[Rfam]
The family of this 133-nucleotide sequence from Rugosimonospora africana is "SAM riboswitch aptamer (S box leader)". Taxonomically the source falls in Rugosimonospora (Bacteria, Bacillati, Actinomycetota, Micromonosporaceae). A search with the family's covariance model found it, with a score of 76 bits. Rfam's curators write: The SAM riboswitch is found upstream of a number of genes which code for proteins involved in methionine or cysteine biosynthesis in Gram-positive bacteria.
RNA sequence: ACCUCAUCCAGAGGGGCAGAGGGAACGGCCCGUUGAAGCCCCGGCAACCACCGCGAUACCUCGACGUUGAGGCCCGCCGUGGCUGGUGCCAAUUCCGUCCAGGCGUGUGAGAUUCGCCCUGGGAAGAUGAGAG
Numbered sequence: 001a002c003c004u005c006a007u008c009c010a011g012a013g014g015g016g017c018a019g020a021g022g023g024a025a026c027g028g029c030c031c032g033u034u035g036a037a038g039c040c041c042c043g044g045c046a047a048c049c050a051c052c053g054c055g056a057u058a059c060c061u062c063g064a065c066g067u068u069g070a071g072g073c074c075c076g077c078c079g080u081g082g083c084u085g086g087u088g089c090c091a092a093u094u095c096c097g098u099c100c101a102g103g104c105g106u107g108u109g110a111g112a113u114u115c116g117c118c119c120u121g122g123g124a125a126g127a128u129g130a131g132a133g
Stems, first nucleotide, its partner, number of pairs: 003131006013042005021031003025098004043090004048086002051082004094125001099122005